[Rfam]
RNA sequence: GUAAAGAGGCCUACUGUAAAGCAGGUUUUUUACUAUAUCGUAUUCGCCCUACGCUCGGCCCGGUCAAAGUUGAGCGUGGGGCUUUUU
Numbered sequence: 001g002u003a004a005a006g007a008g009g010c011c012u013a014c015u016g017u018a019a020a021g022c023a024g025g026u027u028u029u030u031u032a033c034u035a036u037a038u039c040g041u042a043u044u045c046g047c048c049c050u051a052c053g054c055u056c057g058g059c060c061c062g063g064u065c066a067a068a069g070u071u072g073a074g075c076g077u078g079g080g081g082c083u084u085u086u087u
Stems, first nucleotide, its partner, number of pairs: 005030008016022002046082014
Dot-bracket structure: ....((((((((...((...))))))))))...............((((((((((((((.........)))))))))))))).....